This 144-nucleotide RNA sequence from Populus tomentosa belongs to the Rfam family "mir-172 microRNA precursor family".
Its family is annotated with miRNA-mediated post-transcriptional gene silencing and RISC complex in the Gene Ontology.
The literature on the family includes a 2004 paper in Mol Cell by Jones-Rhoades and Bartel, "Computational Identification of Plant MicroRNAs and Their Targets, Including a Stress-Induced miRNA".
The match comes from Rfam's covariance-model search (92 bits).
Nucleotides: 144
Stems, first nucleotide, its partner, number of pairs: 010135001012133002015130004020125011032113002
Number, partner (000 for none) and nucleotide at each position: 001000c002000u003000g004000u005000u006000u007000g008000c009000u010135g011000a012133u013132g014000g015130a016129g017128c018127a019000c020125c021124a022123u023122c024121a025120a026119g027118a028117u029116u030115c031000a032113c033112a034000a035000a036000c037000u038000u039000u040000a041000u042000u043000a044000g045000g046000g047000c048000u049000a050000a051000u052000a053000a054000g055000u056000g057000g058000u059000g060000a061000u062000g063000a064000u065000g066000u067000u068000g069000g070000c071000u072000u073000u074000u075000g076000g077000u078000g079000g080000u081000c082000c083000c084000u085000u086000c087000g088000u089000u090000u091000c092000a093000a094000c095000c096000c097000a098000a099000u100000a101000g102000c103000c104000a105000u106000u107000u108000g109000a110000a111000u112033u113032g114000g115030g116029a117028a118027u119026c120025u121024u122023g123022a124021u125020g126000a127018u128017g129016c130015u131000g132013c133012a134000g135010c136000g137000g138000c139000a140000a141000u142000a143000a144000a